[Rfam]
RNA sequence: AUAAUGAGACUUCCGUCUGGGCAAAGGCCCAUGCGGCUCGGUGAGAACCACGGAGGGGUGAAAGGCCCAUGG
Numbered sequence: 001a002u003a004a005u006g007a008g009a010c011u012u013c014c015g016u017c018u019g020g021g022c023a024a025a026g027g028c029c030c031a032u033g034c035g036g037c038u039c040g041g042u043g044a045g046a047a048c049c050a051c052g053g054a055g056g057g058g059u060g061a062a063a064g065g066c067c068c069a070u071g072g
Stems, first nucleotide, its partner, number of pairs: 012069001013036004037055003041051003056068003
Rfam assigns this 72-nucleotide RNA to the family "pemK RNA". The sequence is in the family's curated seed alignment. The family's consensus secondary structure is taken from published work.